[Rfam]
Flavobacterium-1 RNA: a 123-nucleotide RNA. Pairs were carried over by alignment from the consensus structure, which is taken from published work. Rfam classes the family as a small RNA.
RNA sequence: AAGGCAGGGCGUCCAAGUCUCGCAGUAUUGCAUUCCUCUGUACGUUAGCUAUCAUGGUUAACAGCCUAGCGACCGAGCCUUUGCAGCGUGCUUCGGGUUCCCUGAUCAGGAGAAGGACGCUGU
Numbered sequence: 001a002a003g004g005c006a007g008g009g010c011g012u013c014c015a016a017g018u019c020u021c022g023c024a025g026u027a028u029u030g031c032a033u034u035c036c037u038c039u040g041u042a043c044g045u046u047a048g049c050u051a052u053c054a055u056g057g058u059u060a061a062c063a064g065c066c067u068a069g070c071g072a073c074c075g076a077g078c079c080u081u082u083g084c085a086g087c088g089u090g091c092u093u094c095g096g097g098u099u100c101c102c103u104g105a106u107c108a109g110g111a112g113a114a115g116g117a118c119g120c121u122g123u
Base pairs, nucleotide, nucleotide: 001081002080003079004078005077007074008073009045010044011043012042014040015039022031023030024029048070049069056066057065084122085121086120087119088118089117091115092114093113094112101110102109103108